[Rfam]
RNA sequence: AAUCUCGGGUAAUUGCGGUCUACUUAUGUAGGCUGAGGAAAGUCCAUGCCCGCACAAGCUGAGAUGCUUGUAGUGUUCGUGCUCGGUGAAAAAAUAAGCUGAGGUGUCUCAUUUGAGAUAACGGCGGAAUACGGAACUAAGGCUUCGGCUAUGUUCUUAUGUUCCCUAAGGUGCCACAGAAACGCAGCAAGACGAGAAAUCGUGUUGAUGGAACGCGGUAAACCCCACGAGCGGGCAACCCAAACAUUGGUAGGGGCGCUUCACAUCUGGAAUUGAACUAAAUGUGGGGGCAGGUGUUUACACCUGGAGAUAGAUGAUUACCCAAAUUUGAAUUGAACCUGAGAAUUCAUUUUGGACAAAACAUGGCUUAUAGAG
Numbered sequence: 001a002a003u004c005u006c007g008g009g010u011a012a013u014u015g016c017g018g019u020c021u022a023c024u025u026a027u028g029u030a031g032g033c034u035g036a037g038g039a040a041a042g043u044c045c046a047u048g049c050c051c052g053c054a055c056a057a058g059c060u061g062a063g064a065u066g067c068u069u070g071u072a073g074u075g076u077u078c079g080u081g082c083u084c085g086g087u088g089a090a091a092a093a094a095u096a097a098g099c100u101g102a103g104g105u106g107u108c109u110c111a112u113u114u115g116a117g118a119u120a121a122c123g124g125c126g127g128a129a130u131a132c133g134g135a136a137c138u139a140a141g142g143c144u145u146c147g148g149c150u151a152u153g154u155u156c157u158u159a160u161g162u163u164c165c166c167u168a169a170g171g172u173g174c175c176a177c178a179g180a181a182a183c184g185c186a187g188c189a190a191g192a193c194g195a196g197a198a199a200u201c202g203u204g205u206u207g208a209u210g211g212a213a214c215g216c217g218g219u220a221a222a223c224c225c226c227a228c229g230a231g232c233g234g235g236c237a238a239c240c241c242a243a244a245c246a247u248u249g250g251u252a253g254g255g256g257c258g259c260u261u262c263a264c265a266u267c268u269g270g271a272a273u274u275g276a277a278c279u280a281a282a283u284g285u286g287g288g289g290g291c292a293g294g295u296g297u298u299u300a301c302a303c304c305u306g307g308a309g310a311u312a313g314a315u316g317a318u319u320a321c322c323c324a325a326a327u328u329u330g331a332a333u334u335g336a337a338c339c340u341g342a343g344a345a346u347u348c349a350u351u352u353u354g355g356a357c358a359a360a361a362c363a364u365g366g367c368u369u370a371u372a373g374a375g
Stems, first nucleotide, its partner, number of pairs: 004375003007371001008322007016035006040369003044366005049235005054071006077230005082103006104122001105120006123225002126165004134156004141150003171223002173219003188207003192203004239255003259289007291306005325353002329349006
RNA: Bacterial RNase P class B